[Rfam]
RNA: Bacterial RNase P class A
RNA sequence: CCAGGGGGCCGGGCAGCCGCGUCGUUCGACAAGCUCUGCAUGAGCGGGUCGGAUGCCGAGGAAAGUCCGGGCUCCACGAAACAAGGGUGGCGGGUAACGCCCGCCGGGCGAAGGGCUUCGGCCCCCAAGCUCAGGGAAAGUGCCACAGAGAGUAUACCGCCGAUGGAGGGAAACCUCACAGGCAAGGGUGAAAGGGUGCGGUAAAAGCGCACCGGGGUGCUGGUAACAGUGUCCGCAUGGUAAACCCCACCCGGAGCAAAACCGAAUAGGGGCAACGCGCCCCGGAUUCGUCCGGGGCAGGCUGGUUUCGAGCCGAGUUGCCCGGGUUGGUUGCUCGAGCCGCGGAGCAAUCCGUGGCCUAGAUGAAUGGCUGCCAUCGGGGAUACGGUCCGAUAAUCGGAUACCGUCCGCGAUACAGAACCCGGCUUACAGGCCCCCUGGCAAU
Numbered sequence: 001c002c003a004g005g006g007g008g009c010c011g012g013g014c015a016g017c018c019g020c021g022u023c024g025u026u027c028g029a030c031a032a033g034c035u036c037u038g039c040a041u042g043a044g045c046g047g048g049u050c051g052g053a054u055g056c057c058g059a060g061g062a063a064a065g066u067c068c069g070g071g072c073u074c075c076a077c078g079a080a081a082c083a084a085g086g087g088u089g090g091c092g093g094g095u096a097a098c099g100c101c102c103g104c105c106g107g108g109c110g111a112a113g114g115g116c117u118u119c120g121g122c123c124c125c126c127a128a129g130c131u132c133a134g135g136g137a138a139a140g141u142g143c144c145a146c147a148g149a150g151a152g153u154a155u156a157c158c159g160c161c162g163a164u165g166g167a168g169g170g171a172a173a174c175c176u177c178a179c180a181g182g183c184a185a186g187g188g189u190g191a192a193a194g195g196g197u198g199c200g201g202u203a204a205a206a207g208c209g210c211a212c213c214g215g216g217g218u219g220c221u222g223g224u225a226a227c228a229g230u231g232u233c234c235g236c237a238u239g240g241u242a243a244a245c246c247c248c249a250c251c252c253g254g255a256g257c258a259a260a261a262c263c264g265a266a267u268a269g270g271g272g273c274a275a276c277g278c279g280c281c282c283c284g285g286a287u288u289c290g291u292c293c294g295g296g297g298c299a300g301g302c303u304g305g306u307u308u309c310g311a312g313c314c315g316a317g318u319u320g321c322c323c324g325g326g327u328u329g330g331u332u333g334c335u336c337g338a339g340c341c342g343c344g345g346a347g348c349a350a351u352c353c354g355u356g357g358c359c360u361a362g363a364u365g366a367a368u369g370g371c372u373g374c375c376a377u378c379g380g381g382g383a384u385a386c387g388g389u390c391c392g393a394u395a396a397u398c399g400g401a402u403a404c405c406g407u408c409c410g411c412g413a414u415a416c417a418g419a420a421c422c423c424g425g426c427u428u429a430c431a432g433g434c435c436c437c438c439u440g441g442c443a444a445u
Base pairs, nucleotide, nucleotide: 001441002440003439004438005437006436007435008434009433010432011430012375013374014373015372016371017370018369020058021057023055024054025053026052027051028050029049030048063428064427065426067425068424069423070422071421072256073255074254075253081308083306085252086251087250088249089248090104091103092102093101094100105134106132107131108130109129135247136246140245141244142241143240144239157187158186159183160182161181164180165179166177167176168175169174195213196212197211198210199209200208214236215234216233217232218231219230220229221228222227260332261331262330263329270323271322272321273320274319275318300314301313302312303311339358340357341356342355343354344353345352346351